[Rfam]
RNA: Molybdenum/Tungsten riboswitch aptamer (Moco RNA motif)
RNA sequence: UAAGUUAAACAUCUCCGAACCUGGCGAUCUAAGGCUUAAAGCUAUGAUUUCCAGGUCGUUAGGGUAUAUAGGGAAACCGGUAUGCCUCCCGGACUUGGAAAGGAGAUAAAACGAGAUGACU
Numbered sequence: 001u002a003a004g005u006u007a008a009a010c011a012u013c014u015c016c017g018a019a020c021c022u023g024g025c026g027a028u029c030u031a032a033g034g035c036u037u038a039a040a041g042c043u044a045u046g047a048u049u050u051c052c053a054g055g056u057c058g059u060u061a062g063g064g065u066a067u068a069u070a071g072g073g074a075a076a077c078c079g080g081u082a083u084g085c086c087u088c089c090c091g092g093a094c095u096u097g098g099a100a101a102g103g104a105g106a107u108a109a110a111a112c113g114a115g116a117u118g119a120c121u
Stems, first nucleotide, its partner, number of pairs: 011107006019056006026049004033043004062087008071078002088098002